[Rfam]
RNA sequence: GGCCCCAUAGCGAAGUUGGUUAUCGCGCCUCCCUGUCACGGAGGAGAUCACGGGUUCGAGUCCCGUUGGGGUCG
Numbered sequence: 001g002g003c004c005c006c007a008u009a010g011c012g013a014a015g016u017u018g019g020u021u022a023u024c025g026c027g028c029c030u031c032c033c034u035g036u037c038a039c040g041g042a043g044g045a046g047a048u049c050a051c052g053g054g055u056u057c058g059a060g061u062c063c064c065g066u067u068g069g070g071g072u073c074g
Stems, first nucleotide, its partner, number of pairs: 001073007010026004028044005050066005
Dot-bracket structure: (((((((..((((.........)))).(((((.......))))).....(((((.......)))))))))))).

This 74-nucleotide sequence from Mycoplasma capricolum belongs to the Rfam family "tRNA". Lineage of the source: Bacteria > Mycoplasmatota > Mollicutes > Mycoplasmataceae > Mycoplasma. The family's RNA type in Rfam is transfer RNA. Gene Ontology term of the family: triplet codon-amino acid adaptor activity. Rfam describes the family as follows. Transfer RNA (tRNA) molecules are approximately 80 nucleotides in length.